[Rfam]
RNA sequence: GUACAGACGCCGCCUGGAGGAUGGCUUGGCUCGAGGGGCGAGGAAGGGCGUGGCAAGCUGCGAUAAGCCCCGGGGAGGCGCAUGCGGCCUUAGAUCCGGGGAUCCCCGAAUGGGACCUCCCGACGGAGCUCGAACAGGGCUCCGUCGCUCCCGGGUUUACACCUGGGAGCGCGAACUCCCCGAACGGAAACAUCCAAGUAGGGGAAGGAGGAGAAAUCAAACGAGAUUCCCUGAGUACCGGCGAGGGAAAGGGGAAGAGCCCAAACCGAAUCCCGCGCGGUGACGCGUGGGAGAUGUAGCGUAUAUGGUCGAUGGCUGCACCCUGAGUGCAGCGCAACUUCGUUCCCUAGCCGAAGUGGCCUGGAAUGGUCCGCCGAAGAGGGUGAUAGCCCCGUAGGUUAAAGGGAGCGGAGUGCGCGCCAUCGACCCGAGUACCUGGCCUUGGAUUUGGCUAGGGAAGUCGGGGGCCAACGGCCUCCAAGGCUAAAUACCUCUCGAGACCGAUAGCGAACUAAGUACCGUGAGGGAACGCUGAAAAGUACCCCGAGAGGGGGGUGAAAAGAGCCUGAAACCAGGCGGCUACAUCG
Numbered sequence: 001g002u003a004c005a006g007a008c009g010c011c012g013c014c015u016g017g018a019g020g021a022u023g024g025c026u027u028g029g030c031u032c033g034a035g036g037g038g039c040g041a042g043g044a045a046g047g048g049c050g051u052g053g054c055a056a057g058c059u060g061c062g063a064u065a066a067g068c069c070c071c072g073g074g075g076a077g078g079c080g081c082a083u084g085c086g087g088c089c090u091u092a093g094a095u096c097c098g099g100g101g102a103u104c105c106c107c108g109a110a111u112g113g114g115a116c117c118u119c120c121c122g123a124c125g126g127a128g129c130u131c132g133a134a135c136a137g138g139g140c141u142c143c144g145u146c147g148c149u150c151c152c153g154g155g156u157u158u159a160c161a162c163c164u165g166g167g168a169g170c171g172c173g174a175a176c177u178c179c180c181c182g183a184a185c186g187g188a189a190a191c192a193u194c195c196a197a198g199u200a201g202g203g204g205a206a207g208g209a210g211g212a213g214a215a216a217u218c219a220a221a222c223g224a225g226a227u228u229c230c231c232u233g234a235g236u237a238c239c240g241g242c243g244a245g246g247g248a249a250a251g252g253g254g255a256a257g258a259g260c261c262c263a264a265a266c267c268g269a270a271u272c273c274c275g276c277g278c279g280g281u282g283a284c285g286c287g288u289g290g291g292a293g294a295u296g297u298a299g300c301g302u303a304u305a306u307g308g309u310c311g312a313u314g315g316c317u318g319c320a321c322c323c324u325g326a327g328u329g330c331a332g333c334g335c336a337a338c339u340u341c342g343u344u345c346c347c348u349a350g351c352c353g354a355a356g357u358g359g360c361c362u363g364g365a366a367u368g369g370u371c372c373g374c375c376g377a378a379g380a381g382g383g384u385g386a387u388a389g390c391c392c393c394g395u396a397g398g399u400u401a402a403a404g405g406g407a408g409c410g411g412a413g414u415g416c417g418c419g420c421c422a423u424c425g426a427c428c429c430g431a432g433u434a435c436c437u438g439g440c441c442u443u444g445g446a447u448u449u450g451g452c453u454a455g456g457g458a459a460g461u462c463g464g465g466g467g468c469c470a471a472c473g474g475c476c477u478c479c480a481a482g483g484c485u486a487a488a489u490a491c492c493u494c495u496c497g498a499g500a501c502c503g504a505u506a507g508c509g510a511a512c513u514a515a516g517u518a519c520c521g522u523g524a525g526g527g528a529a530c531g532c533u534g535a536a537a538a539g540u541a542c543c544c545c546g547a548g549a550g551g552g553g554g555g556u557g558a559a560a561a562g563a564g565c566c567u568g569a570a571a572c573c574a575g576g577c578g579g580c581u582a583c584a585u586c587g
Base pairs, nucleotide, nucleotide: 009580010579011578012577013576014575015574016573017572023566024532025531028502029501030499031498032497033496034495035494036492037491046107047106048105049062050061051060068101069100070099071098072097073096077089078088079087112121113120114119148169149168150167151166152165153164154163155162156161176207177205178204179203180202181201187194188193217224218223228255229254230253231252232251238246239245258485259484260483261482266299268297276287277286278285279284311424312423313422314421334416335415336414350399351398352397356372358371359370360369361368375379381393382392383391435456436455437454438453439452440451441450463479464478465477466476467475519526520525
This 587-nucleotide part of an RNA from an uncultured Nitrososphaerota archaeon belongs to the Rfam family "Archaeal large subunit ribosomal RNA". On this family, see Cannone et al., BMC Bioinformatics 2002: "The comparative RNA web (CRW) site: an online database of comparative sequence and structure information for ribosomal, intron, and other RNAs". Its family is annotated with structural constituent of ribosome and ribosome in the Gene Ontology. The sequence is in the family's curated seed alignment. The family has 91 seed sequences and 2,955 matches in Rfam 15.1.